[Rfam]
RNA: Nuclear RNase P
Organism: Mycena indigotica
RNA sequence: ACAGACUCAAAGCCGCGAUGCUCGUUCCGUACAAGACUCUUCGUAGUCUCCUUUCACGAGCGGGCUAAGGUCUGAGAAUUCAAGUCGCCCUCGAUCGGCUCUAGCGGGGGCCGCCUCGUCAUAGAGGCAACGGGUACAAGAAAUUCACCAUCUGCGCUCCAUCGAUCUGGACGUUGGUUUGGAAUCCUCGUGGCGACUGCGUACUCUCCUCUCCUUUGGCUCUGCCAGAGGGAGAGAAUUGCGCUUGAGUGCACUUCGCGGCUCGCAUACUGUCGUUUUUUCUUCGAAAAAGCCAUGCGAAACUCGAUUCAGACUACUCUUUGUCUGU
Numbered sequence: 001a002c003a004g005a006c007u008c009a010a011a012g013c014c015g016c017g018a019u020g021c022u023c024g025u026u027c028c029g030u031a032c033a034a035g036a037c038u039c040u041u042c043g044u045a046g047u048c049u050c051c052u053u054u055c056a057c058g059a060g061c062g063g064g065c066u067a068a069g070g071u072c073u074g075a076g077a078a079u080u081c082a083a084g085u086c087g088c089c090c091u092c093g094a095u096c097g098g099c100u101c102u103a104g105c106g107g108g109g110g111c112c113g114c115c116u117c118g119u120c121a122u123a124g125a126g127g128c129a130a131c132g133g134g135u136a137c138a139a140g141a142a143a144u145u146c147a148c149c150a151u152c153u154g155c156g157c158u159c160c161a162u163c164g165a166u167c168u169g170g171a172c173g174u175u176g177g178u179u180u181g182g183a184a185u186c187c188u189c190g191u192g193g194c195g196a197c198u199g200c201g202u203a204c205u206c207u208c209c210u211c212u213c214c215u216u217u218g219g220c221u222c223u224g225c226c227a228g229a230g231g232g233a234g235a236g237a238a239u240u241g242c243g244c245u246u247g248a249g250u251g252c253a254c255u256u257c258g259c260g261g262c263u264c265g266c267a268u269a270c271u272g273u274c275g276u277u278u279u280u281u282c283u284u285c286g287a288a289a290a291a292g293c294c295a296u297g298c299g300a301a302a303c304u305c306g307a308u309u310c311a312g313a314c315u316a317c318u319c320u321u322u323g324u325c326u327g328u
Base pairs, nucleotide, nucleotide: 001328002327003326004325009320012262013261014260015259016258017257018256020061021060022059023058024057034049035048036047037046038045072312073311074310075309076308086195087194088193089192097111099109100108101107113128114127115126116125117124130191131190132189133187134186147178148177149176263300264299265298266297267296268295